[Rfam]
RNA sequence: UCCAGCAGUUGUCAGCUAUCCAGGCUGUGUGGUGCCCGAGAUCGUGUGUACACUGUUGGAAGAGUAAACACUGCCUUACUAAGGGUCGGCUCCCAGCACUGUUUUGGUGUCUGGUGCUGAGUACUUUCAGGCAGUAUUGCAUCCCUGAGAGUGGAAUGACUCCUUGUGGAGUUGGUCCUGGUCUGGGUGCAAACAAU
Numbered sequence: 001u002c003c004a005g006c007a008g009u010u011g012u013c014a015g016c017u018a019u020c021c022a023g024g025c026u027g028u029g030u031g032g033u034g035c036c037c038g039a040g041a042u043c044g045u046g047u048g049u050a051c052a053c054u055g056u057u058g059g060a061a062g063a064g065u066a067a068a069c070a071c072u073g074c075c076u077u078a079c080u081a082a083g084g085g086u087c088g089g090c091u092c093c094c095a096g097c098a099c100u101g102u103u104u105u106g107g108u109g110u111c112u113g114g115u116g117c118u119g120a121g122u123a124c125u126u127u128c129a130g131g132c133a134g135u136a137u138u139g140c141a142u143c144c145c146u147g148a149g150a151g152u153g154g155a156a157u158g159a160c161u162c163c164u165u166g167u168g169g170a171g172u173u174g175g176u177c178c179u180g181g182u183c184u185g186g187g188u189g190c191a192a193a194c195a196a197u
Base pairs, nucleotide, nucleotide: 001060002059003058004057005056006055007054008053009052011051012050015045016044018042019041020040021038023036024035025034068135069134072133073132074131075130076129082126083125084124086120087119088118089117090116093113095110097109098108099107100106137192138191139190140189141188142187143186144185153178154177155176157174158173159172160171161170162169163168
Small nucleolar RNA SNORA74: a 197-nucleotide sequence. Rfam 15.1 lists 1,348 matches to the family in 628 species. Pairs were carried over by alignment from the consensus structure, which was predicted with PFOLD. It is annotated as an H/ACA-box small nucleolar RNA. Rfam links the family to the GO terms nucleolus and RNA processing. Its Rfam clan is "SNORA74 clan". Rfam describes the family as follows. U19 belongs to the H/ACA class of snoRNAs. snoRNAs bind a number of proteins (including dyskerin, Gar1p and Nop10p in the case of the H/ACA class) to form snoRNP complexes.